[Rfam]
The record is a 116-nucleotide RNA sequence from Cavia porcellus, which matches "Small nucleolar RNA SNORA61" in Rfam. The base pairs follow the family's consensus structure, which was predicted with PFOLD. The family's RNA type in Rfam is H/ACA-box small nucleolar RNA. Its family is annotated with nucleolus and RNA processing in the Gene Ontology. Rfam describes the family as follows. ACA61 is a member of the H/ACA class of snoRNA that guide the sites of modification of uridines to pseudouridines. Taxonomically the source falls in Cavia (Eukaryota, Gnathostomata, Euteleostomi, Sarcopterygii). Rfam 15.1 lists 881 matches to the family in 421 species.
RNA sequence: ACCCUCCAGUUUCCUUUCCCAUCGGAUCUGAACACUGUUCUUGGUGAUCAUCAGGGAGGGAAAGGAAUGCUGAAGCUGGCCUCACAGCCUUACAUGCGGGCUAGUGUUUUGUUUUG
Numbered sequence: 001a002c003c004c005u006c007c008a009g010u011u012u013c014c015u016u017u018c019c020c021a022u023c024g025g026a027u028c029u030g031a032a033c034a035c036u037g038u039u040c041u042u043g044g045u046g047a048u049c050a051u052c053a054g055g056g057a058g059g060g061a062a063a064g065g066a067a068u069g070c071u072g073a074a075g076c077u078g079g080c081c082u083c084a085c086a087g088c089c090u091u092a093c094a095u096g097c098g099g100g101c102u103a104g105u106g107u108u109u110u111g112u113u114u115u116g
Stems, first nucleotide, its partner, number of pairs: 003059005020046004025040002028037001076104007